Shown here is a 107-nucleotide RNA sequence from Prosthecodimorpha hirschii, a member of the family "TPP riboswitch aptamer (THI element)". Lineage of the source: Bacteria > Pseudomonadati > Pseudomonadota > Alphaproteobacteria > Prosthecodimorpha. Pairs were carried over by alignment from the consensus structure, which is taken from published work.
RNA sequence: UGCCAGUCCGAGGGGUGCUCCUGUGGGAGCUGAGAUGGCGCUGCGGCGUCGGACCCUUUGAACCUGAUCCGGGUCAUGCCGGCGAAGGGACGGGAUCAACCGGCUUU
Numbered sequence: 001u002g003c004c005a006g007u008c009c010g011a012g013g014g015g016u017g018c019u020c021c022u023g024u025g026g027g028a029g030c031u032g033a034g035a036u037g038g039c040g041c042u043g044c045g046g047c048g049u050c051g052g053a054c055c056c057u058u059u060g061a062a063c064c065u066g067a068u069c070c071g072g073g074u075c076a077u078g079c080c081g082g083c084g085a086a087g088g089g090a091c092g093g094g095a096u097c098a099a100c101c102g103g104c105u106u107u
Stems, first nucleotide, its partner, number of pairs: 007094004011057004016051001017030005037050005063088003069082004
A search with the family's covariance model found it, with a score of 80 bits.